[Rfam]
This 71-nucleotide sequence from Glutamicibacter sp. BW77 belongs to the Rfam family "Actino-pnp RNA".
Lineage of the source: Bacteria > Actinomycetota > Actinomycetes > Micrococcales > Glutamicibacter.
The family's RNA type in Rfam is cis-regulatory element.
It scores 50 bits against the family's covariance model.

RNA sequence: CGCGGUCCUCGGUAGUGGCUUUCGCUUUAGCCCAUUGAUGGCUGAAGCGCGGGUCUCGAUCGAAGACCAGA
Numbered sequence: 001c002g003c004g005g006u007c008c009u010c011g012g013u014a015g016u017g018g019c020u021u022u023c024g025c026u027u028u029a030g031c032c033c034a035u036u037g038a039u040g041g042c043u044g045a046a047g048c049g050c051g052g053g054u055c056u057c058g059a060u061c062g063a064a065g066a067c068c069a070g071a
Stems, first nucleotide, its partner, number of pairs: 004068004009063005017055005023049010